Rfam assigns this 38-nucleotide RNA sequence from Herpetosiphon aurantiacus to the family "CRISPR RNA direct repeat element". Rfam links the family to the GO term defense response. Pairs were carried over by alignment from the consensus structure, which was predicted with WAR. Rfam's curators put it in the seed alignment.
[Rfam]
RNA sequence: GCUUUUAUCCCCCAAAGAGGAUUCAGGUCUUUCGAAUC
Numbered sequence: 001g002c003u004u005u006u007a008u009c010c011c012c013c014a015a016a017g018a019g020g021a022u023u024c025a026g027g028u029c030u031u032u033c034g035a036a037u038c
Stems, first nucleotide, its partner, number of pairs: 016032005